RNA sequence: AACUGAAAAAGGCAAAUCACGGGGAACUGUGAGACGCAAAGCCAAGGGCCUGAACCAUAGCGGGUAGAUGCUAUGGGUGGCAGCCGGUUGCCAAA
Numbered sequence: 001a002a003c004u005g006a007a008a009a010a011g012g013c014a015a016a017u018c019a020c021g022g023g024g025a026a027c028u029g030u031g032a033g034a035c036g037c038a039a040a041g042c043c044a045a046g047g048g049c050c051u052g053a054a055c056c057a058u059a060g061c062g063g064g065u066a067g068a069u070g071c072u073a074u075g076g077g078u079g080g081c082a083g084c085c086g087g088u089u090g091c092c093a094a095a
Base pairs, nucleotide, nucleotide: 012037013036017032018031019030020029021028022027040089041088042087043086046085047084048081049080050079055076056075057074058073059072060071061070062069

The family of this 95-nucleotide sequence from Paenibacillus nanensis is "c-di-GMP-I riboswitch aptamer". Rfam links the family to the GO term cyclic-di-GMP binding. Rfam describes the family as follows. GEMM was predicted in a large-scale screen for bacterial structured RNA regulatory elements.